[Rfam]
RNA sequence: UGCAGUUGCAUUGCAGUUGCAUUGCAGUGUGCAGUGCAACUGCAAUGCAACUGCA
Numbered sequence: 001u002g003c004a005g006u007u008g009c010a011u012u013g014c015a016g017u018u019g020c021a022u023u024g025c026a027g028u029g030u031g032c033a034g035u036g037c038a039a040c041u042g043c044a045a046u047g048c049a050a051c052u053g054c055a
Stems, first nucleotide, its partner, number of pairs: 001055004007049010019037001021035006
RNA: mir-33 microRNA precursor family
Organism: Cylicocyclus nassatus